[Rfam]
RNA sequence: UGUACCUAUGAUAAUGACUGGUGGCAGAUGAGUUUGGAUGAUGAAUCCUGUGUAUCUAGAACUCUGAGGUCCAG
Number, nucleotide and partner (000 for none) at each position: 001u000002g072003u000004a070005c069006c068007u000008a000009u000010g000011a000012u000013a000014a000015u000016g000017a000018c000019u000020g000021g000022u000023g000024g000025c000026a000027g000028a000029u000030g000031a000032g000033u000034u000035u000036g000037g000038a000039u000040g000041a000042u000043g000044a000045a000046u000047c000048c000049u000050g000051u000052g000053u000054a000055u000056c000057u000058a000059g000060a000061a000062c000063u000064c000065u000066g000067a000068g006069g005070u004071c000072c002073a000074g000
RNA: Small nucleolar RNA SNORD113/SNORD114 family
Organism: Canis lupus